[Rfam]
RNA sequence: AAAAAGGGCUUCUGCUAUGUAUGGCACAUGGAGUGAGGCAGCUGCGGCUUUACCUUGCUUUGUGCGGAAUCGACAUCAAGAGAUUUCGGAAGCACAAUUUUUGUUUCUCGGGCAGCUGGUAAUCGUUGGUUCCGGCGCCCCC
Numbered sequence: 001a002a003a004a005a006g007g008g009c010u011u012c013u014g015c016u017a018u019g020u021a022u023g024g025c026a027c028a029u030g031g032a033g034u035g036a037g038g039c040a041g042c043u044g045c046g047g048c049u050u051u052a053c054c055u056u057g058c059u060u061u062g063u064g065c066g067g068a069a070u071c072g073a074c075a076u077c078a079a080g081a082g083a084u085u086u087c088g089g090a091a092g093c094a095c096a097a098u099u100u101u102u103g104u105u106u107c108u109c110g111g112g113c114a115g116c117u118g119g120u121a122a123u124c125g126u127u128g129g130u131u132c133c134g135g136c137g138c139c140c141c142c
Base pairs, nucleotide, nucleotide: 008093009092010091011090012089013026014025015024016023017022027064028063029062030061031060032059033058034057035056036055037054038053065088066087067086068085069084070083071082110140111139112138113137115136116135117134118133119132121131122130123129124128